[Rfam]
RNA sequence: GGUCAUGCUUUUCCACAGCUUUCUUGAACUUGUUCCUUCUUUUCCUGUCUAUUAACCAUGGAAUUAAGCUCAAGAAAGCUGUGGGAGAACAUGGCGG
Numbered sequence: 001g002g003u004c005a006u007g008c009u010u011u012u013c014c015a016c017a018g019c020u021u022u023c024u025u026g027a028a029c030u031u032g033u034u035c036c037u038u039c040u041u042u043u044c045c046u047g048u049c050u051a052u053u054a055a056c057c058a059u060g061g062a063a064u065u066a067a068g069c070u071c072a073a074g075a076a077a078g079c080u081g082u083g084g085g086a087g088a089a090c091a092u093g094g095c096g097g
Stems, first nucleotide, its partner, number of pairs: 003094005013084003017080006024073004029068004
About this RNA: MIR396 microRNA precursor family: a 97-nucleotide RNA sequence from Morus notabilis. Pairs were carried over by alignment from the consensus structure, which was predicted with WAR. The source organism's lineage runs through Eukaryota, Tracheophyta, rosids, Rosales and Morus.